[Rfam]
RNA sequence: UGACGUCGGUACCUUCUCCUGUGAGCAGUGUUUCAUGAGGAUUUUACGAUGUCGCAGAGAAAUUCGGGUCUUUUUCACCCAGGAAGCUUCAGGCUUCAGCCGACAAUCCAAAGCUUCCUGGUUUUGCAAGAGCCAACAAAU
Numbered sequence: 001u002g003a004c005g006u007c008g009g010u011a012c013c014u015u016c017u018c019c020u021g022u023g024a025g026c027a028g029u030g031u032u033u034c035a036u037g038a039g040g041a042u043u044u045u046a047c048g049a050u051g052u053c054g055c056a057g058a059g060a061a062a063u064u065c066g067g068g069u070c071u072u073u074u075u076c077a078c079c080c081a082g083g084a085a086g087c088u089u090c091a092g093g094c095u096u097c098a099g100c101c102g103a104c105a106a107u108c109c110a111a112a113g114c115u116u117c118c119u120g121g122u123u124u125u126g127c128a129a130g131a132g133c134c135a136a137c138a139a140a141u
Base pairs, nucleotide, nucleotide: 001054002053003052004051005050006049007048008047014041015040016039017038018037020035021034023032067133069131070130071129072128079121080120081119082118083117084116085115086114087113088112092109093108095106096105